[Rfam]
Nucleotides: 061
Stems, first nucleotide, its partner, number of pairs: 010025004016052006033042003
Number, partner (000 for none) and nucleotide at each position: 001000a002000g003000u004000u005000u006000u007000a008000u009000c010025g011024g012023c013022g014000a015000u016052g017051g018050a019049g020048u021047c022013c023012g024011c025010c026000g027000u028000a029000a030000a031000a032000u033042g034041c035040c036000g037000u038000a039000a040035g041034g042033c043000u044000g045000a046000u047021g048020a049019c050018u051017c052016c053000u054000a055000c056000c057000c058000a059000a060000u061000u